RNA: MIR2912 microRNA precursor family
RNA sequence: UCUAGAACUCAAGAUAUGGGCUGAACACUGAACAGUGUCUGGACUGCAGGACAGAUUUGGACUUCUUUGUUAUUGCUAUAAUUUGGACUUGAAAACGGCCUUUCUAAAUCUUGGAGUCCACAUGAAAGUUAUAGGCUUAUGACUUACCUAAUCUAUG
Numbered sequence: 001u002c003u004a005g006a007a008c009u010c011a012a013g014a015u016a017u018g019g020g021c022u023g024a025a026c027a028c029u030g031a032a033c034a035g036u037g038u039c040u041g042g043a044c045u046g047c048a049g050g051a052c053a054g055a056u057u058u059g060g061a062c063u064u065c066u067u068u069g070u071u072a073u074u075g076c077u078a079u080a081a082u083u084u085g086g087a088c089u090u091g092a093a094a095a096c097g098g099c100c101u102u103u104c105u106a107a108a109u110c111u112u113g114g115a116g117u118c119c120a121c122a123u124g125a126a127a128g129u130u131a132u133a134g135g136c137u138u139a140u141g142a143c144u145u146a147c148c149u150a151a152u153c154u155a156u157g
Base pairs, nucleotide, nucleotide: 003155004154005153006152009146011145012144013143015141016140017139018138019137020136021134022133023132025130027129028128029127035123036122037121041119042118043117045115048112049111050110051109054105059100060099062098063097068092073087074086